[Rfam]
Nucleotides: 156
Stems, first nucleotide, its partner, number of pairs: 001048012013030005031078005064151006085125005100113005
Number, partner (000 for none) and nucleotide at each position: 001048c002047c003046g004045u005044u006043a007042u008041u009040g010039c011038c012037g013030c014029a015028c016027g017026g018000a019000u020000u021000g022000a023000u024000c025000c026017c027016c028015g029014u030013g031078a032077c033076c034075c035074a036000a037012c038011g039010g040009c041008a042007a043006u044005g045004a046003c047002g048001g049000a050000c051000a052000a053000c054000a055000g056000a057000a058000u059000a060000a061000a062000u063000c064151a065150g066149c067148u068147g069146c070000c071000u072000a073000g074035u075034g076033g077032g078031u079000a080000g081000g082000c083000c084000g085125g086124c087123u088122g089121c090000a091000a092000u093000c094000c095000g096000a097000a098000a099000c100113g101112g102111a103110g104109a105000u106000u107000a108000u109104u110103c111102u112101c113100c114000u115000a116000g117000g118000a119000c120000u121089g122088c123087g124086g125085u126000g127000c128000u129000u130000u131000u132000g133000u134000u135000a136000u137000g138000c139000c140000u141000u142000g143000g144000a145000g146069g147068c148067a149066g150065u151064u152000u153000c154000u155000g156000c